[Rfam]
About this RNA:
Shown here is a 322-nucleotide RNA sequence from Rhizobium sp. Root1212, a member of the family "Alphaproteobacteria transfer-messenger RNA". A search with the family's covariance model found it, with a score of 198 bits. Lineage of the source: Bacteria > Pseudomonadati > Hyphomicrobiales > Rhizobiaceae > Rhizobium.

RNA sequence: CCCCUUGAUAAGCGCCCUUUCACCUCCUAUGUUGACACUGCUUCGUUCGCGAAGACUAUGGCGCUAAACCUGUUGUGCAAUAGAUGUACAGGACGCGGCUUCGACGCCGCCGCCUCCACCAAGAACCGUCGACUGCGACGGCUGUUGAUGGGGGCGACAUGGGAUCGACUGGCAUUGAAAGACAAGAGCUGUGCUCGGCAUGAUACCGCCGUUAUCGGGUCAAAAUAGUAGUUGCAAACGACAACUAUGCGGAAGCUCGUCUCGCUGCUUAAUCGCGGUGUGACACUUCAAAUCAAGUCCUAAGGGAACAGAAACCUCCACU
Numbered sequence: 001c002c003c004c005u006u007g008a009u010a011a012g013c014g015c016c017c018u019u020u021c022a023c024c025u026c027c028u029a030u031g032u033u034g035a036c037a038c039u040g041c042u043u044c045g046u047u048c049g050c051g052a053a054g055a056c057u058a059u060g061g062c063g064c065u066a067a068a069c070c071u072g073u074u075g076u077g078c079a080a081u082a083g084a085u086g087u088a089c090a091g092g093a094c095g096c097g098g099c100u101u102c103g104a105c106g107c108c109g110c111c112g113c114c115u116c117c118a119c120c121a122a123g124a125a126c127c128g129u130c131g132a133c134u135g136c137g138a139c140g141g142c143u144g145u146u147g148a149u150g151g152g153g154g155c156g157a158c159a160u161g162g163g164a165u166c167g168a169c170u171g172g173c174a175u176u177g178a179a180a181g182a183c184a185a186g187a188g189c190u191g192u193g194c195u196c197g198g199c200a201u202g203a204u205a206c207c208g209c210c211g212u213u214a215u216c217g218g219g220u221c222a223a224a225a226u227a228g229u230a231g232u233u234g235c236a237a238a239c240g241a242c243a244a245c246u247a248u249g250c251g252g253a254a255g256c257u258c259g260u261c262u263c264g265c266u267g268c269u270u271a272a273u274c275g276c277g278g279u280g281u282g283a284c285a286c287u288u289c290a291a292a293u294c295a296a297g298u299c300c301u302a303a304g305g306g307a308a309c310a311g312a313a314a315c316c317u318c319c320a321c322u
Base pairs, nucleotide, nucleotide: 040056041054042053043052044051060195061194062193063192064191070188071187073185074184075183076182085174086173087172089171090170091169095110096109097108098107099106111156112155113154114153115152116151117150196211197210198209199208201222202221203220206218207217
Background:
Rfam classes the family as a non-coding RNA gene.